[Rfam]
RNA sequence: AGGCAGCCCCUUUGUCGAUUUUAUGACUAAGGCGGUGUUGUACUGCUCGUAAAGUGAACUCUUUGGCUCUUCAGACUUGCUGAGAUUACAAUCACUGAAGCUGGUCUAGUAGGCCUUAGUACAUU
Numbered sequence: 001a002g003g004c005a006g007c008c009c010c011u012u013u014g015u016c017g018a019u020u021u022u023a024u025g026a027c028u029a030a031g032g033c034g035g036u037g038u039u040g041u042a043c044u045g046c047u048c049g050u051a052a053a054g055u056g057a058a059c060u061c062u063u064u065g066g067c068u069c070u071u072c073a074g075a076c077u078u079g080c081u082g083a084g085a086u087u088a089c090a091a092u093c094a095c096u097g098a099a100g101c102u103g104g105u106c107u108a109g110u111a112g113g114c115c116u117u118a119g120u121a122c123a124u125u
Stems, first nucleotide, its partner, number of pairs: 002039004007035002009032004014027004061119002066114003073107005079101003084093003
Rfam assigns this 125-nucleotide RNA from Trema andersonii to the family "Small nucleolar RNA snoR77". Rfam links the family to the GO terms RNA processing and nucleolus. Taxonomically the source falls in Trema (Eukaryota, Streptophyta, Streptophytina, Magnoliopsida). The family has 5 seed sequences and 649 matches in Rfam 15.1. It is annotated as an H/ACA-box small nucleolar RNA. On this family, see Marker et al., Curr Biol 2002: "Experimental RNomics: identification of 140 candidates for small non-messenger RNAs in the plant Arabidopsis thaliana". The base pairs follow the family's consensus structure, which was predicted with WAR.